[Rfam]
RNA sequence: UGGACCAGUGAUAAGAACGUGUUAGGAACCAAAGAUUAUGAGUAAUCUAGUUUUGUAUAUCUGAGGUCCAUU
Numbered sequence: 001u002g003g004a005c006c007a008g009u010g011a012u013a014a015g016a017a018c019g020u021g022u023u024a025g026g027a028a029c030c031a032a033a034g035a036u037u038a039u040g041a042g043u044a045a046u047c048u049a050g051u052u053u054u055g056u057a058u059a060u061c062u063g064a065g066g067u068c069c070a071u072u
Stems, first nucleotide, its partner, number of pairs: 001070006
RNA: Small nucleolar RNA SNORD112